The record is a 174-nucleotide RNA from Compostibacillus humi, which matches "Lysine riboswitch aptamer" in Rfam. The base pairs follow the family's consensus structure, which is taken from published work.

RNA sequence: CGGUGAGGUAGAGGUGCAAGCAAGAAGAGUAGUCAGCAGGAGGAUGACAACGAGGAUUGCUGAUGAAAGGAUUGUUUGCCGAAGCGUAAUAAGGGUCAGACUUAUUAUUGCUGGUGUGCCUUUGAAUAAGAGGUACACUGUCAUGCAUGUAUUGCAUGGAGGACUACUGAUCGA
Numbered sequence: 001c002g003g004u005g006a007g008g009u010a011g012a013g014g015u016g017c018a019a020g021c022a023a024g025a026a027g028a029g030u031a032g033u034c035a036g037c038a039g040g041a042g043g044a045u046g047a048c049a050a051c052g053a054g055g056a057u058u059g060c061u062g063a064u065g066a067a068a069g070g071a072u073u074g075u076u077u078g079c080c081g082a083a084g085c086g087u088a089a090u091a092a093g094g095g096u097c098a099g100a101c102u103u104a105u106u107a108u109u110g111c112u113g114g115u116g117u118g119c120c121u122u123u124g125a126a127u128a129a130g131a132g133g134u135a136c137a138c139u140g141u142c143a144u145g146c147a148u149g150u151a152u153u154g155c156a157u158g159g160a161g162g163a164c165u166a167c168u169g170a171u172c173g174a
Base pairs, nucleotide, nucleotide: 007168008167009166010165011164016079017078018077019076020075021074022073023072032064033063034062035061036060037059038058039057083112084111085110086109087107088106089105090104091103092102093101113139114138115137116136117135118134119133120132121131122130123129141159142158143157144156145155146154147153
A search with the family's covariance model found it, with a score of 121 bits.
On this family, see Grundy et al., Proc Natl Acad Sci U S A 2003: "The L box regulon: Lysine sensing by leader RNAs of bacterial lysine biosynthesis genes".